[Rfam]
This 160-nucleotide RNA from Modestobacter italicus belongs to the Rfam family "c-di-AMP riboswitch aptamer (ydaO/yuaA leader)". Taxonomically the source falls in Modestobacter (Bacteria, Actinomycetota, Actinomycetes, Geodermatophilales). Its family is annotated with regulation of gene expression and cyclic-di-AMP binding in the Gene Ontology. Rfam's curators write: This family represents a conserved RNA structure found upstream of the ydaO and yuaA genes in Bacillus subtilis and related genes in other bacteria.

RNA sequence: GGACGGACCCCGCCGAACCAUCCGUGCCACUGGCCGGGUGGACCGGGGACCCAUCGAUCCCCUGGGGUGAAUCCUGGCGGCGCACCUGCGUGCGCUCCAGGUAGGGCGUCUUCCAGCCCGAACCCGUCAGCUAACUCGGUAGGCGGUCAGGAAGAACGGA
Dot-bracket structure: ..........((((...(((((((..........)))))))((((((....((.........))(((.....((((.....................))))..((((........))))...))).........)))))).))))...............